[Rfam]
RNA sequence: UGAUGGAACUCUGGAAAGACGUUACGCACCGUAGGAGCAAUACAUGUAAAUGUAAAAACUCUCAGGUAAAAAUACAGAGAUAUAAUG
Numbered sequence: 001u002g003a004u005g006g007a008a009c010u011c012u013g014g015a016a017a018g019a020c021g022u023u024a025c026g027c028a029c030c031g032u033a034g035g036a037g038c039a040a041u042a043c044a045u046g047u048a049a050a051u052g053u054a055a056a057a058a059c060u061c062u063c064a065g066g067u068a069a070a071a072a073u074a075c076a077g078a079g080a081u082a083u084a085a086u087g
Base pairs, nucleotide, nucleotide: 007081009079010078011077012076013075020026021025028067029066030065031063035061036060037059041054042053043052044051